[Rfam]
RNA: Fluoride riboswitch aptamer (crcB RNA motif)
Organism: Pseudoxanthomonas suwonensis
RNA sequence: UGGGCCAACGGGAAUGGGGCUUCCCGCGAACCGCCUUCGGGCUGAUAGCUCCUACACACCG
Numbered sequence: 001u002g003g004g005c006c007a008a009c010g011g012g013a014a015u016g017g018g019g020c021u022u023c024c025c026g027c028g029a030a031c032c033g034c035c036u037u038c039g040g041g042c043u044g045a046u047a048g049c050u051c052c053u054a055c056a057c058a059c060c061g
Base pairs, nucleotide, nucleotide: 010025011024012023013022016052017051018050019049020048021047033042034041035040